Shown here is a 417-nucleotide RNA sequence from Corynebacterium aquatimens, a member of the family "Bacterial RNase P class A". It scores 281 bits against the family's covariance model. It is annotated as a ribozyme.

[Rfam]
RNA sequence: UGAGUCGGCCGGGUGAUCGCGGCGAAUGUGGACUGCGCGCGUAUGCGGGCAAGCACGGGUCGAGGAAAGUCCGGACUCCGCACGGCACGGUGGUUGUUAACGGCAACCCGGGGUGACCCGCGGGAAAGUGCAACAGAGAGUAGACCGCCUUCACCGCGUGCGGUGGAGGUAAGGGUGAAAGGGUGCGGUAAGAGCGCACCGGCGGGUGUGGUGACACAUCCGGCCAGGUAAACCCCACCGGGAGCAAGGCAAGAGCCCCUGCCCAAAAAGGCAGGGGUUGUCGGACGCUAGUAGGCUGCCCGCCGAAGUCCGAAGGUAGCUGCUUGAGGCACCCAGCAAUGGGUGUCCUAGAUGGAUGAUCGCCGCCCGCAACAUACGUUGCGGGUACAGAAUCCGGCUUACGUGCCGGCUCAUUCG
Numbered sequence: 001u002g003a004g005u006c007g008g009c010c011g012g013g014u015g016a017u018c019g020c021g022g023c024g025a026a027u028g029u030g031g032a033c034u035g036c037g038c039g040c041g042u043a044u045g046c047g048g049g050c051a052a053g054c055a056c057g058g059g060u061c062g063a064g065g066a067a068a069g070u071c072c073g074g075a076c077u078c079c080g081c082a083c084g085g086c087a088c089g090g091u092g093g094u095u096g097u098u099a100a101c102g103g104c105a106a107c108c109c110g111g112g113g114u115g116a117c118c119c120g121c122g123g124g125a126a127a128g129u130g131c132a133a134c135a136g137a138g139a140g141u142a143g144a145c146c147g148c149c150u151u152c153a154c155c156g157c158g159u160g161c162g163g164u165g166g167a168g169g170u171a172a173g174g175g176u177g178a179a180a181g182g183g184u185g186c187g188g189u190a191a192g193a194g195c196g197c198a199c200c201g202g203c204g205g206g207u208g209u210g211g212u213g214a215c216a217c218a219u220c221c222g223g224c225c226a227g228g229u230a231a232a233c234c235c236c237a238c239c240g241g242g243a244g245c246a247a248g249g250c251a252a253g254a255g256c257c258c259c260u261g262c263c264c265a266a267a268a269a270g271g272c273a274g275g276g277g278u279u280g281u282c283g284g285a286c287g288c289u290a291g292u293a294g295g296c297u298g299c300c301c302g303c304c305g306a307a308g309u310c311c312g313a314a315g316g317u318a319g320c321u322g323c324u325u326g327a328g329g330c331a332c333c334c335a336g337c338a339a340u341g342g343g344u345g346u347c348c349u350a351g352a353u354g355g356a357u358g359a360u361c362g363c364c365g366c367c368c369g370c371a372a373c374a375u376a377c378g379u380u381g382c383g384g385g386u387a388c389a390g391a392a393u394c395c396g397g398c399u400u401a402c403g404u405g406c407c408g409g410c411u412c413a414u415u416c417g
Stems, first nucleotide, its partner, number of pairs: 001413009011402001012364007020062004027055002067400003071397005076244004084300003088240005093107005108122001109120004123235002128233002130229002145174002147170009182200006202224001203222008248321003281313006292306001294304003328347008
Notes: The organism belongs to Corynebacterium, within Bacteria. About the family: Ribonuclease P (RNase P) is a ubiquitous endoribonuclease, found in archaea, bacteria and eukarya as well as chloroplasts and mitochondria.